Source information:
mir-344 microRNA precursor family: a 65-nucleotide RNA from Peromyscus maniculatus. A reference for the family is Chiang et al. (2010), "Mammalian microRNAs: experimental evaluation of novel and previously annotated genes", Genes Dev. Gene Ontology terms of the family: RISC complex and miRNA-mediated post-transcriptional gene silencing. Pairs were carried over by alignment from the consensus structure, which was predicted with RNAalifold. Lineage of the source: Eukaryota > Eumetazoa > Craniata > Eutheria > Peromyscus maniculatus.
[Rfam]
RNA sequence: UCAAUAGCCAGGCUCCUGGCUAAAUUCCAGCUGAGGGCUGGAUUUAGCCAAAGCCUGACUGGAAA
Numbered sequence: 001u002c003a004a005u006a007g008c009c010a011g012g013c014u015c016c017u018g019g020c021u022a023a024a025u026u027c028c029a030g031c032u033g034a035g036g037g038c039u040g041g042a043u044u045u046a047g048c049c050a051a052a053g054c055c056u057g058a059c060u061g062g063a064a065a
Stems, first nucleotide, its partner, number of pairs: 007059001009057001011055004017050008027041005